RNA sequence: AACACGCUCCCUUAGAUCCACCCCUGGGGAGCGUCCUGGGCCGCGUGCUGCUGCUGCUUCCUCUAUCUGGGAGUCCAGCAGCUCCGGCCAGGGGGCUCCCAGCAACUUGACGGUUGCACAGUCGGGGGUGCUUGAGUCAUAGGCGUGUGAGAGCAGUCCACCUGCACACCAGCCCCCUGCUGUACUGGACACCGGCCGGCCCCGCGCCCCCCGGAGCACGCCAGUACAGCCAGGCUGGUGGGCGGACAAG
Dot-bracket structure: .(((((((..(((((...(((((((((((((..((((..((((.(..((((((......................))))))..))))).))))..))))).((((((....)))))).....)))))))).))))).....))))))).............((((...(.((((......((((((((....((..(..................)..))))))))))....)))).)...)))).....
Shown here is a 250-nucleotide RNA sequence from Lepisosteus oculatus, a member of the family "Small nucleolar RNA SNORA53". The snoRNA ACA53 belongs to the H/ACA family of pseudouridylation guide snoRNAs.